The record is a 148-nucleotide RNA from Sphaeramia orbicularis, which matches "Small Cajal body specific RNA 11" in Rfam. Gene Ontology terms of the family: RNA processing, nucleolus and Cajal body. The family has 24 seed sequences and 853 matches in Rfam 15.1. A reference for the family is Darzacq et al. (2002), "Cajal body-specific small nuclear RNAs: a novel class of 2'-O-methylation and pseudouridylation guide RNAs", EMBO J. By type it is a small Cajal body RNA. A search with the family's covariance model found it, with a score of 43 bits. Lineage of the source: Eukaryota > Teleostomi > Euteleostomi > Teleostei > Sphaeramia. Rfam describes the family as follows. scaRNAs are a specific class of small nuclear RNAs which localise to the Cajal bodies and guide the modification of RNA polymerase II transcribed spliceosomal RNAs U1, U2, U4, U5 and U12. ACA57 belongs to the H/ACA box class of guide RNAs as it has the predicted hairpin-hinge-hairpin-tail structure, conserved H/ACA-box motifs and is found associated with GAR1. ACA57 is predicted to guide the pseudouridylation of the U5 spliceosomal RNA at position U43.
RNA sequence: GUGUUUUCAGUGUUUGUCCAGUCUGCCCUCCUCUGUUCAUCAGUAACAGAGGGGAAGGUCUCAGACAGAGGACACAGACUAACCUCUGCCCAAGAAUGGGGACAAGUCCAAAGAUGAGGGCUUUGUCCUAAAGGCAGGGCAGCACAAA
Numbered sequence: 001g002u003g004u005u006u007u008c009a010g011u012g013u014u015u016g017u018c019c020a021g022u023c024u025g026c027c028c029u030c031c032u033c034u035g036u037u038c039a040u041c042a043g044u045a046a047c048a049g050a051g052g053g054g055a056a057g058g059u060c061u062c063a064g065a066c067a068g069a070g071g072a073c074a075c076a077g078a079c080u081a082a083c084c085u086c087u088g089c090c091c092a093a094g095a096a097u098g099g100g101g102a103c104a105a106g107u108c109c110a111a112a113g114a115u116g117a118g119g120g121c122u123u124u125g126u127c128c129u130a131a132a133g134g135c136a137g138g139g140c141a142g143c144a145c146a147a148a
Base pairs, nucleotide, nucleotide: 002074003073004072005071006070007069008068011063012062025059026058027057029055030054031053032052033051034050086142087141088140089139090138094135097132099129100128101127102126103125104124105123106121107120108119109118